[Rfam]
RNA: HNH endonuclease-associated RNA and ORF (HEARO) RNA
Organism: Phormidium nigroviride
Nucleotides: 221
Base pairs, nucleotide, nucleotide: 001060002059003058004057005056006055010029011028012026013025015022016021063206064205065204066203068082070080071079085200086199087198089196091194092193093192094191095190100135101134104129105128107126109125110124111123112122113217116214117213118212119211137182138181139180140179141178143176144175145174149173150172152170153169154168155167156166157165
Number, partner (000 for none) and nucleotide at each position: 001060g002059u003058c004057a005056a006055c007000g008000a009000c010029c011028c012026a013025g014000c015022a016021c017000g018000g019000a020000a021016g022015u023000g024000a025013c026012u027000g028011g029010g030000c031000u032000u033000c034000g035000g036000g037000g038000c039000u040000a041000a042000a043000a044000c045000u046000u047000c048000a049000u050000u051000u052000u053000c054000a055006g056005u057004u058003g059002a060001c061000c062000a063206g064205c065204c066203u067000g068082a069000u070080a071079c072000c073000u074000u075000u076000g077000a078000u079071g080070u081000c082068u083000a084000g085200g086199u087198u088000g089196u090000g091194u092193g093192a094191g095190u096000a097000a098000u099000g100135a101134c102000a103000c104129c105128a106000a107126g108000u109125g110124g111123a112122u113217g114000c115000g116214u117213a118212g119211c120000u121000a122112g123111u124110c125109c126107c127000c128105u129104g130000u131000u132000c133000u134101g135100u136000c137182g138181u139180u140179a141178a142000g143176g144175g145174u146000u147000a148000a149173a150172c151000a152170u153169c154168u155167u156166u157165a158000u159000u160000u161000g162000g163000g164000c165157u166156a167155a168154g169153g170152a171000c172150g173149u174145g175144c176143c177000a178141u179140u180139a181138g182137c183000c184000g185000a186000a187000u188000c189000a190095g191094c192093u193092c194091a195000g196089a197000a198087a199086a200085c201000a202000a203066a204065g205064g206063c207000g208000c209000g210000u211119g212118c213117u214116a215000a216000c217113u218000u219000c220000a221000c